[Rfam]
RNA: Iron response element II
RNA sequence: UCGUGUUCUUCAGCAGUGUCUGAAAAUAUGG
Numbered sequence: 001u002c003g004u005g006u007u008c009u010u011c012a013g014c015a016g017u018g019u020c021u022g023a024a025a026a027u028a029u030g031g
Stems, first nucleotide, its partner, number of pairs: 001031007009024005014018001